[Rfam]
RNA sequence: UAGCCUGAAAUGAUGAGUGUGGUUCAUGUCUCUUCUCUGAUUUAUACUGGAGAUACUCCAAAGACUCUGAUCAGGCAG
Numbered sequence: 001u002a003g004c005c006u007g008a009a010a011u012g013a014u015g016a017g018u019g020u021g022g023u024u025c026a027u028g029u030c031u032c033u034u035c036u037c038u039g040a041u042u043u044a045u046a047c048u049g050g051a052g053a054u055a056c057u058c059c060a061a062a063g064a065c066u067c068u069g070a071u072c073a074g075g076c077a078g
Base pairs, nucleotide, nucleotide: 001078003076004075005074
Small nucleolar RNA SNORD111: a 78-nucleotide sequence from Loxia leucoptera.
Pairs were carried over by alignment from the consensus structure, which was predicted with RNAalifold.
It is annotated as a C/D-box small nucleolar RNA.
Lineage of the source: Eukaryota > Craniata > Euteleostomi > Australaves > Loxia.